[Rfam]
RNA: MIR8565 microRNA precursor family
Organism: Amborella trichopoda
RNA sequence: CUUCCACCCAUGUGUGUAGGACCACAAAGGAUCACCAUUAAAUUUGGCAUGGAUCUUUAGAAAAGUUAUCAUAUGGGUGUGAGACUUGACUUUUUUGGAGAUCCGUGUCAAAUUUAAUGGUGAUCUUUUAAGGUCCUACACAUAUGGCUGGGAG
Numbered sequence: 001c002u003u004c005c006a007c008c009c010a011u012g013u014g015u016g017u018a019g020g021a022c023c024a025c026a027a028a029g030g031a032u033c034a035c036c037a038u039u040a041a042a043u044u045u046g047g048c049a050u051g052g053a054u055c056u057u058u059a060g061a062a063a064a065g066u067u068a069u070c071a072u073a074u075g076g077g078u079g080u081g082a083g084a085c086u087u088g089a090c091u092u093u094u095u096u097g098g099a100g101a102u103c104c105g106u107g108u109c110a111a112a113u114u115u116a117a118u119g120g121u122g123a124u125c126u127u128u129u130a131a132g133g134u135c136c137u138a139c140a141c142a143u144a145u146g147g148c149u150g151g152g153a154g
Base pairs, nucleotide, nucleotide: 002153003152004151005150006149008147009146010145011144012143013142015140016139017138018137019136020135021134022133023132026129027128028127030125031124032123034121035120036119037118038117039116040115041114042113043112044111045110046109047108048107049106050105051104052103053102054101055100056099057098058097059096060095061094062093063092064091065090066089067088068087069082070081071080072079073078
Dot-bracket structure: .(((((.((((((.(((((((((..(((.(((.((((((((((((((((((((((((((((((((((((((((....)))))....))))))))))))))))))))))))))))))))))).))).)))..))))))))).)))))).))))).